[Rfam]
RNA: Small nucleolar RNA U54
Organism: Paspalum vaginatum
RNA sequence: GGAUAUGUGAUUGUGGCUAAUUAAAUUGGCAAUUUACAAUGUGCUGACAUCAACUUGAUGAAAAGAAACAUUCUGAAAUCU
Number, nucleotide and partner (000 for none) at each position: 001g081002g080003a079004u078005a000006u000007g000008u000009g000010a000011u000012u000013g000014u000015g000016g000017c000018u000019a000020a000021u000022u000023a000024a000025a000026u000027u000028g000029g000030c000031a000032a000033u000034u000035u000036a000037c000038a000039a000040u000041g000042u000043g000044c000045u000046g000047a000048c000049a000050u000051c000052a000053a000054c000055u000056u000057g000058a000059u000060g000061a000062a000063a000064a000065g000066a000067a000068a000069c000070a000071u000072u000073c000074u000075g000076a000077a000078a004079u003080c002081u001